[Rfam]
RNA anti-toxin A: a 90-nucleotide sequence from Lactobacillus gasseri.
Pairs were carried over by alignment from the consensus structure, which was predicted with RNAalifold.
Rfam's curators put it in the seed alignment.
The source organism's lineage runs through Bacteria, Bacilli, Lactobacillaceae, Lactobacillus and Lactobacillus gasseri.
For this family Rfam cites "Abundance of type I toxin-antitoxin systems in bacteria: searches for new candidates and discovery of novel families" (Fozo et al., Nucleic Acids Res, 2010).
RNA sequence: UAAUGUAGACAGAAAAAGGAAGCCCCGCUAGAACAGGACUUCCCAUGUAGAGCCGUUAAAGACGGUGGCAUAACUUAAUACGAUUAAAUA
Numbered sequence: 001u002a003a004u005g006u007a008g009a010c011a012g013a014a015a016a017a018g019g020a021a022g023c024c025c026c027g028c029u030a031g032a033a034c035a036g037g038a039c040u041u042c043c044c045a046u047g048u049a050g051a052g053c054c055g056u057u058a059a060a061g062a063c064g065g066u067g068g069c070a071u072a073a074c075u076u077a078a079u080a081c082g083a084u085u086a087a088a089u090a
Base pairs, nucleotide, nucleotide: 024037025036027034052066053065054064055063056062057061